RNA sequence: UGGUUGUAGCCAAAUUGAUUAUGAAGCCAAUUGUCGUUAAUCUCAGUCGAUAAAUCUGCUUACCGAACUUCAUAUAUUC
Numbered sequence: 001u002g003g004u005u006g007u008a009g010c011c012a013a014a015u016u017g018a019u020u021a022u023g024a025a026g027c028c029a030a031u032u033g034u035c036g037u038u039a040a041u042c043u044c045a046g047u048c049g050a051u052a053a054a055u056c057u058g059c060u061u062a063c064c065g066a067a068c069u070u071c072a073u074a075u076a077u078u079c
Base pairs, nucleotide, nucleotide: 021073022072023071024070025060026059027058030055031054032053033051034050035049036048